RNA sequence: GAAUUACAUCAAGAGAGAGCGAAAGCUCCACCAACCAGCCUAAUCGGGCAACGGUGGUUCAACGAUGAGACCGAAAAAGAAAUACUUAAGUAGGUAACAAUACGAUUGAGC
Numbered sequence: 001g002a003a004u005u006a007c008a009u010c011a012a013g014a015g016a017g018a019g020c021g022a023a024a025g026c027u028c029c030a031c032c033a034a035c036c037a038g039c040c041u042a043a044u045c046g047g048g049c050a051a052c053g054g055u056g057g058u059u060c061a062a063c064g065a066u067g068a069g070a071c072c073g074a075a076a077a078a079g080a081a082a083u084a085c086u087u088a089a090g091u092a093g094g095u096a097a098c099a100a101u102a103c104g105a106u107u108g109a110g111c
Base pairs, nucleotide, nucleotide: 007067008066009065010064015029017028018027019026020025030058031057032056035054036053038049039048040047042107043106044105045104046103070095071094072093

SAM-I/IV (S-adenosyl methionine) riboswitch aptamer: a 111-nucleotide RNA. The base pairs follow the family's consensus structure, which is taken from published work. Gene Ontology terms of the family: regulation of gene expression and S-adenosylmethionine metabolic process.